RNA sequence: UGGACAGAUUAUUGUAUUCGACUGUAUUCACGUCGUGAAAUAGGAGAUUACACUGUUUUUAAAACGAAAAGUGAAUCAUAAUAGACUCCU
Numbered sequence: 001u002g003g004a005c006a007g008a009u010u011a012u013u014g015u016a017u018u019c020g021a022c023u024g025u026a027u028u029c030a031c032g033u034c035g036u037g038a039a040a041u042a043g044g045a046g047a048u049u050a051c052a053c054u055g056u057u058u059u060u061a062a063a064a065c066g067a068a069a070a071g072u073g074a075a076u077c078a079u080a081a082u083a084g085a086c087u088c089c090u
Base pairs, nucleotide, nucleotide: 002089003088004087009084010083017081018080023078024077026076027075028074029073030072031071034066035065036064037059038058039057040056041055042054043053
This 90-nucleotide RNA from Nicotiana attenuata belongs to the Rfam family "MIR6152 microRNA precursor family". Its family is annotated with RISC complex and miRNA-mediated post-transcriptional gene silencing in the Gene Ontology. Pairs were carried over by alignment from the consensus structure, which was predicted with RNAalifold. A search with the family's covariance model found it, with a score of 76 bits. Taxonomically the source falls in Nicotiana (Eukaryota, Embryophyta, Euphyllophyta, asterids).